[Rfam]
RNA sequence: UCUGAAAACCUGUUUUCGCUUUGUCAUUAUGAUAUAUUGUAUGAAGUUUGAGGACAAUUUUUUAUU
Numbered sequence: 001u002c003u004g005a006a007a008a009c010c011u012g013u014u015u016u017c018g019c020u021u022u023g024u025c026a027u028u029a030u031g032a033u034a035u036a037u038u039g040u041a042u043g044a045a046g047u048u049u050g051a052g053g054a055c056a057a058u059u060u061u062u063u064a065u066u
Stems, first nucleotide, its partner, number of pairs: 012063001018059001020057002023055003026047003030044001032042003
Small Cajal body specific RNA ncR26: a 66-nucleotide sequence from Salvelinus namaycush. By type it is a small Cajal body RNA. Lineage of the source: Eukaryota > Gnathostomata > Euteleostomi > Salmoninae > Salvelinus. Rfam 15.1 lists 19 matches to the family in 16 species.